[Rfam]
RNA sequence: UUACAGUCAAUUAAGCCAAUCAUGUUCCUUUCCUUGUAAGGGCCAGGUGUGCCAUGGCUGCGAACAGCAGCCUUCUCGGUAGUAUGUGCACCGUGUUGCUUGUAUGUUGUAUGCGUUGCCCUAAGGACCUUGGAGACAGCC
Dot-bracket structure: ...((.............(((...(((............)))...))).))..........................(((........((.(((((..............))))).))........)))............

Small nucleolar RNA SNORA70: a 141-nucleotide sequence from Pan paniscus. Taxonomically the source falls in Pan (Eukaryota, Vertebrata, Primates, Homininae). The family's RNA type in Rfam is H/ACA-box small nucleolar RNA. It scores 94 bits against the family's covariance model. On this family, see Charette and Gray, IUBMB Life 2000: "Pseudouridine in RNA: what, where, how, and why". Rfam describes the family as follows. snoRNA U70 seems to be exclusive to mammals and is a member of the H/ACA class of snoRNA which contain H (ANANNA) and ACA box motifs. H/ACA box snoRNAs are involved in the conversion of uridines to pseudouridines (5-ribosyluracil) a constituent of structural RNAs (transfer, ribosomal, small nuclear, and small nucleolar). The family has 43 seed sequences and 5,173 matches in Rfam 15.1.